[Rfam]
RNA sequence: GGGGCUGACAGGAAUCGACAGUAGAGUGUAUCAUGUCAGUAAGCAUGCCGGGGAAUGGUGGUUUACCCCGUUAUCAAAUGAUUACCGACCAAUAAUUGGCGAAACUCGUUUCGCGUUGGCUGCCUAAUUCAAGGAAUUAGCGUGCCUUCAUGCUAAGGGUUUGAUAUCUGCUAAAACCCGGUGCAUUCAUCAAUGCAGGUUAAGCCAAAGGGAUGUCCCGACCGGAGGCCGACAAUCCAGGGAACCGGAUGUCAUCACGUUGUUGCAGUACCAGAUGGCAUCUUAAAUCCGAUCUGCAAAUAAGCAUGUAGAAAGCUGAUGUGGGCUUUAGCUGGACGGGGGUUCAAUUCCCCCCGGCUCCACCA
Number, nucleotide and partner (000 for none) at each position: 001g361002g360003g359004g358005c357006u356007g355008a000009c000010a000011g000012g000013a000014a000015u000016c000017g000018a000019c334020a333021g332022u331023a000024g329025a328026g327027u000028g000029u000030a000031u324032c323033a322034u321035g320036u319037c318038a317039g316040u315041a000042a000043g000044c308045a307046u306047g305048c304049c070050g069051g068052g067053g066054a000055a000056u087057g086058g085059u084060g083061g082062u081063u000064u000065a000066c053067c052068c051069c050070g049071u000072u000073a000074u000075c000076a000077a000078a000079u000080g000081a062082u061083u060084a059085c058086c057087g056088a000089c000090c000091a000092a000093u000094a000095a000096u000097u000098g000099g000100c000101g000102a000103a000104a000105c000106u000107c000108g000109u000110u000111u000112c000113g000114c000115g000116u000117u139118g138119g137120c000121u136122g000123c134124c133125u132126a000127a000128u000129u000130c000131a000132a125133g124134g123135a000136a121137u119138u118139a117140g000141c000142g000143u000144g182145c181146c180147u000148u000149c000150a000151u173152g172153c000154u000155a000156a169157g168158g000159g000160u000161u193162u192163g191164a190165u189166a000167u000168c157169u156170g000171c000172u152173a151174a000175a000176a000177c000178c000179c000180g146181g145182u144183g000184c000185a000186u000187u000188c000189a165190u164191c163192a162193a161194u000195g000196c225197a000198g223199g222200u221201u220202a000203a000204g000205c000206c000207a000208a000209a000210g238211g237212g236213a000214u234215g233216u000217c000218c000219c000220g201221a200222c199223c198224g000225g196226a000227g000228g000229c000230c000231g000232a000233c215234a214235a000236u212237c211238c210239a000240g000241g000242g000243a000244a000245c000246c000247g283248g282249a281250u280251g279252u278253c000254a000255u000256c000257a000258c000259g271260u270261u000262g000263u299264u298265g000266c000267a295268g294269u000270a260271c259272c000273a000274g000275a000276u000277g000278g252279c251280a250281u249282c248283u247284u000285a000286a000287a000288u000289c000290c000291g000292a000293u000294c268295u267296g000297c000298a264299a263300a000301u000302a000303a000304g048305c047306a046307u045308g044309u000310a000311g000312a000313a000314a000315g040316c039317u038318g037319a036320u035321g034322u033323g032324g031325g000326c000327u026328u025329u024330a000331g022332c021333u020334g019335g000336a000337c000338g354339g353340g352341g351342g350343u000344u000345c000346a000347a000348u000349u000350c342351c341352c340353c339354c338355c007356g006357g005358c004359u003360c002361c001362a000363c000364c000365a000

Rfam assigns this 365-nucleotide sequence to the family "transfer-messenger RNA".
It is annotated as a non-coding RNA gene.
The base pairs follow the family's consensus structure, which is taken from published work.
From the family's description: Bacterial tmRNA, also known as 10Sa RNA or SsrA, is named for its dual tRNA and mRNA-like properties. Its role is to liberate the mRNA from a stalled ribosome. To accomplish this part of the tmRNA is used as a reading frame that ends in a translation stop signal.